[Rfam]
RNA sequence: CACUUGUUAGUAAGAUGUUAUUAAAAAUGUUUGAACAUGCGAACUCCAUAGUGGAUUUAGUGGAUUACUGAGAUGAGCU
Numbered sequence: 001c002a003c004u005u006g007u008u009a010g011u012a013a014g015a016u017g018u019u020a021u022u023a024a025a026a027a028u029g030u031u032u033g034a035a036c037a038u039g040c041g042a043a044c045u046c047c048a049u050a051g052u053g054g055a056u057u058u059a060g061u062g063g064a065u066u067a068c069u070g071a072g073a074u075g076a077g078c079u
Base pairs, nucleotide, nucleotide: 003077004076005075006074007073008072
RNA: Small nucleolar RNA SNORD72